Rfam assigns this 78-nucleotide RNA from Carex littledalei to the family "Small nucleolar RNA Z155".
The family has 8 seed sequences and 429 matches in Rfam 15.1.
Its family is annotated with RNA processing and nucleolus in the Gene Ontology.
A reference for the family is Chen et al. (2003), "The high diversity of snoRNAs in plants: identification and comparative study of 120 snoRNA genes from Oryza sativa", Nucleic Acids Res.
By type it is a C/D-box small nucleolar RNA.
Pairs were carried over by alignment from the consensus structure.
The organism belongs to Carex subgen. Euthyceras, within Eukaryota.
RNA sequence: CGUUGACAGGAUGAUGAUUUUUGUCGGAAAUUAAAACGUGUCGAUUGAAAAAAUCAGACUACAAUUAUCUGAUCAACG
Numbered sequence: 001c002g003u004u005g006a007c008a009g010g011a012u013g014a015u016g017a018u019u020u021u022u023g024u025c026g027g028a029a030a031u032u033a034a035a036a037c038g039u040g041u042c043g044a045u046u047g048a049a050a051a052a053a054u055c056a057g058a059c060u061a062c063a064a065u066u067a068u069c070u071g072a073u074c075a076a077c078g
Base pairs, nucleotide, nucleotide: 001078002077003076004075005074006073